[Rfam]
RNA sequence: GUCCUGCCACCACCGAAGGCUCCUAUGAAUUCUCGCGGCAGGAGCGGGGAACCCAGGUUUGCGGGCUCAGCACUCAGGUGCCCUUGGGGUGAAUCCGGUCGACAUGACCGGUAGGGCGAACUCCCGUCCGAACCCGACAGCUCACCUCGUAGGCGACCGGAGAGGCCCU
Numbered sequence: 001g002u003c004c005u006g007c008c009a010c011c012a013c014c015g016a017a018g019g020c021u022c023c024u025a026u027g028a029a030u031u032c033u034c035g036c037g038g039c040a041g042g043a044g045c046g047g048g049g050a051a052c053c054c055a056g057g058u059u060u061g062c063g064g065g066c067u068c069a070g071c072a073c074u075c076a077g078g079u080g081c082c083c084u085u086g087g088g089g090u091g092a093a094u095c096c097g098g099u100c101g102a103c104a105u106g107a108c109c110g111g112u113a114g115g116g117c118g119a120a121c122u123c124c125c126g127u128c129c130g131a132a133c134c135c136g137a138c139a140g141c142u143c144a145c146c147u148c149g150u151a152g153g154c155g156a157c158c159g160g161a162g163a164g165g166c167c168c169u
Base pairs, nucleotide, nucleotide: 002043003042004041005040006039007038008037044150045149046148047147048146049145054086055085056084057083087135088134089133095111096110097109098108114129115128116127117126
RNA: c-di-AMP riboswitch aptamer (ydaO/yuaA leader)
Organism: Pengzhenrongella sicca